Rfam assigns this 67-nucleotide RNA sequence from Bombyx mori to the family "mir-2774 microRNA precursor family".
A search with the family's covariance model found it, with a score of 52 bits.
The literature on the family includes a 2010 paper in BMC Genomics by Liu et al., "MicroRNAs of Bombyx mori identified by Solexa sequencing".

RNA sequence: ACAACAUUGAAACCGAUGGUCUACCGAGCAUUAUCAGCGGCUCGGUGGAAGAUCCUCCCUCUGACGU
Number, nucleotide and partner (000 for none) at each position: 001a000002c000003a000004a000005c063006a062007u000008u000009g000010a000011a000012a056013c000014c000015g053016a000017u051018g000019g000020u049021c048022u047023a046024c045025c044026g043027a042028g041029c040030a000031u000032u000033a000034u000035c000036a000037g000038c000039g000040g029041c028042u027043c026044g025045g024046u023047g022048g021049a020050a000051g017052a000053u015054c000055c000056u012057c000058c000059c000060u000061c000062u006063g005064a000065c000066g000067u000